Shown here is a 91-nucleotide RNA sequence from Bos taurus, a member of the family "Small nucleolar RNA SNORD116". Rfam links the family to the GO terms nucleolus and RNA processing. It is annotated as a C/D-box small nucleolar RNA.
RNA sequence: GGAUUGUGUUGACUCCCACAAAUGCAUUCCUUGGGAGUUUGAACAAAAUGAGUGAGCAGUCCUUGUGGUCUUCUCAUUAGAAUUAAGUUCC
Numbered sequence: 001g002g003a004u005u006g007u008g009u010u011g012a013c014u015c016c017c018a019c020a021a022a023u024g025c026a027u028u029c030c031u032u033g034g035g036a037g038u039u040u041g042a043a044c045a046a047a048a049u050g051a052g053u054g055a056g057c058a059g060u061c062c063u064u065g066u067g068g069u070c071u072u073c074u075c076a077u078u079a080g081a082a083u084u085a086a087g088u089u090c091c
Stems, first nucleotide, its partner, number of pairs: 001091003005087001025054005031046003